[Rfam]
Rfam assigns this 68-nucleotide sequence from Fukomys damarensis to the family "Small nucleolar RNA SNORD63". Its family is annotated with nucleolus and RNA processing in the Gene Ontology. The organism belongs to Fukomys, within Eukaryota. From the family's description: snoRNA U63 is found in both humans and mice. A reference for the family is Galardi et al. (2002), "Purified box C/D snoRNPs are able to reproduce site-specific 2'-O-methylation of target RNA in vitro", Mol Cell Biol. The family's RNA type in Rfam is C/D-box small nucleolar RNA.
RNA sequence: GUGCAGUGAUGGUAUUUGUCAACACAUCAUUCUGAAGAAAACUGUGGUGACUUCUGUGACUGAGCACA
Numbered sequence: 001g002u003g004c005a006g007u008g009a010u011g012g013u014a015u016u017u018g019u020c021a022a023c024a025c026a027u028c029a030u031u032c033u034g035a036a037g038a039a040a041a042c043u044g045u046g047g048u049g050a051c052u053u054c055u056g057u058g059a060c061u062g063a064g065c066a067c068a
Base pairs, nucleotide, nucleotide: 001067002066003065004064